[Rfam]
RNA sequence: AUUGGAAGCUGAACACACCUCCAACAUGGGCAAACAAAAUGCCUUUUGUCUACACUUUCAGCCUUCCUUGAGUAAAAUGAAGGAUUCUGCCUGGUUUUGCAGAGCCAGCUGAUCCAGAUUGUUCCCCUUUAUGUAUA
Number, nucleotide and partner (000 for none) at each position: 001a000002u000003u000004g067005g066006a065007a000008g062009c061010u060011g059012a058013a000014c000015a000016c000017a000018c000019c000020u000021c000022c000023a000024a000025c000026a000027u052028g051029g050030g049031c048032a000033a000034a000035c000036a045037a044038a000039a000040u000041g000042c000043c000044u037045u036046u000047u000048g031049u030050c029051u028052a027053c000054a000055c000056u000057u000058u012059c011060a010061g009062c008063c000064u000065u006066c005067c004068u000069u000070g000071a000072g000073u000074a000075a000076a000077a000078u000079g130080a129081a128082g127083g126084a000085u000086u000087c121088u000089g119090c000091c117092u000093g115094g114095u000096u112097u111098u000099g109100c000101a000102g000103a000104g000105c000106c000107a000108g000109c099110u000111g097112a096113u000114c094115c093116a000117g091118a000119u089120u000121g087122u000123u000124c000125c000126c083127c082128u081129u080130u079131a000132u000133g000134u000135a000136u000137a000

This 137-nucleotide sequence from Podarcis muralis belongs to the Rfam family "Small Cajal body specific RNA 3".
The match comes from Rfam's covariance-model search (78 bits).
The family is grouped with related families in Rfam's "SCARNA3 clan".
The source organism's lineage runs through Eukaryota, Bilateria, Teleostomi, Sauria and Podarcis.
From the family's description: scaRNAs are a specific class of small nuclear RNAs which localise to the Cajal bodies and guide the modification of RNA polymerase II transcribed spliceosomal RNAs U1, U2, U4, U5 and U12.